[Rfam]
RNA sequence: AGGCAGCCCCCUUGCGAAUUGAAAAACAAUGGUAAGGAGGGUGUUGUUCUACUCGGAAAUUAUUUUCUUUGGCUCUGAGAAAUUUAUUUCUCUGAAGCUGGUCUAGUAAGCUUAAGUACAUU
Numbered sequence: 001a002g003g004c005a006g007c008c009c010c011c012u013u014g015c016g017a018a019u020u021g022a023a024a025a026a027c028a029a030u031g032g033u034a035a036g037g038a039g040g041g042u043g044u045u046g047u048u049c050u051a052c053u054c055g056g057a058a059a060u061u062a063u064u065u066u067c068u069u070u071g072g073c074u075c076u077g078a079g080a081a082a083u084u085u086a087u088u089u090c091u092c093u094g095a096a097g098c099u100g101g102u103c104u105a106g107u108a109a110g111c112u113u114a115a116g117u118a119c120a121u122u
Base pairs, nucleotide, nucleotide: 002045003044004043005042007041008040010037011036012035013034014033015032017030067116068115069114072111073110074109076096079090080089081088

The record is a 122-nucleotide RNA from Papaver somniferum, which matches "Small nucleolar RNA snoR77" in Rfam. Rfam 15.1 lists 649 matches to the family in 221 species. A search with the family's covariance model found it, with a score of 61 bits. The literature on the family includes a 2002 paper in Curr Biol by Marker et al., "Experimental RNomics: identification of 140 candidates for small non-messenger RNAs in the plant Arabidopsis thaliana". By type it is an H/ACA-box small nucleolar RNA. The base pairs follow the family's consensus structure, which was predicted with WAR. The organism belongs to Papaver, within Eukaryota.